[Rfam]
RNA sequence: CCUCCCGCUCCCUCGGGAGUAGCCUAGUCGAACGUGCGAAGGUGGUAACGCCUUGGUGCGAAGCUUCGACAACAACGUACCGGCCCCUUUCAGGGGACAACCGAACCGUGAGGAACGGUUGAGGACUGCGAGCAUCGCGCGGGUCCCGGG
Numbered sequence: 001c002c003u004c005c006c007g008c009u010c011c012c013u014c015g016g017g018a019g020u021a022g023c024c025u026a027g028u029c030g031a032a033c034g035u036g037c038g039a040a041g042g043u044g045g046u047a048a049c050g051c052c053u054u055g056g057u058g059c060g061a062a063g064c065u066u067c068g069a070c071a072a073c074a075a076c077g078u079a080c081c082g083g084c085c086c087c088u089u090u091c092a093g094g095g096g097a098c099a100a101c102c103g104a105a106c107c108g109u110g111a112g113g114a115a116c117g118g119u120u121g122a123g124g125a126c127u128g129c130g131a132g133c134a135u136c137g138c139g140c141g142g143g144u145c146c147c148g149g150g
Stems, first nucleotide, its partner, number of pairs: 002019006028069005033060005039054006083098001085096004099120004106113002126142005